RNA sequence: AGUCAGUGAUGACCUGUAAAAGGUCUGAUUGCAUUGUGCUUCCCCAACACACCAAAUCAUCUCCCAGCAGUCCUACUUUUUUUUCUGUUCCUGUCCUGCUCUAGCUAUGCAGUGAUGGGCAACGGGUCUGCCGACAUUUAUGGAUACCCCAUAAUGCCAAAUCUCUUUAAGAAUCCAGAGCUAUGGUAACACAGGGUAUCCGACACAUCCAGUGUAAAGGAGACUAAGGUGUUUGGUUUGAAGCAAUAUACUUUGCAUGAUCUCUAGUUUUCAAUCUGAGACU
Number, nucleotide and partner (000 for none) at each position: 001a283002g282003u281004c280005a000006g000007u000008g000009a000010u000011g000012a000013c000014c000015u000016g000017u000018a000019a000020a000021a000022g000023g000024u000025c000026u000027g000028a000029u000030u000031g000032c000033a000034u000035u000036g262037u000038g000039c259040u000041u000042c000043c236044c235045c000046a233047a232048c231049a230050c229051a000052c000053c000054a000055a000056a000057u000058c000059a000060u000061c222062u221063c220064c219065c133066a000067g131068c130069a129070g128071u000072c000073c000074u000075a000076c000077u000078u000079u000080u000081u000082u000083u000084u000085c000086u000087g000088u000089u000090c119091c118092u117093g116094u115095c114096c000097u112098g000099c109100u000101c000102u000103a000104g000105c000106u000107a000108u000109g099110c000111a000112g097113u000114g095115a094116u093117g092118g091119g090120c000121a000122a000123c000124g000125g000126g000127u000128c070129u069130g068131c067132c000133g065134a000135c000136a000137u000138u000139u000140a000141u000142g000143g200144a199145u198146a197147c196148c195149c000150c000151a000152u000153a000154a000155u000156g000157c186158c185159a184160a000161a182162u000163c180164u179165c178166u177167u000168u000169a000170a000171g000172a000173a000174u000175c000176c000177a166178g165179a164180g163181c000182u161183a000184u159185g158186g157187u000188a000189a000190c000191a000192c000193a000194g000195g148196g147197u146198a145199u144200c143201c000202g000203a000204c000205a000206c000207a000208u000209c000210c000211a000212g000213u000214g000215u000216a000217a000218a000219g064220g063221a062222g061223a000224c000225u000226a000227a000228g000229g050230u049231g048232u047233u046234u000235g044236g043237u000238u000239u000240g000241a000242a000243g000244c000245a000246a000247u000248a000249u000250a000251c000252u000253u000254u000255g000256c000257a000258u000259g039260a000261u000262c036263u000264c000265u000266a000267g000268u000269u000270u000271u000272c000273a000274a000275u000276c000277u000278g000279a000280g004281a003282c002283u001
RNA: Small Cajal body specific RNA 6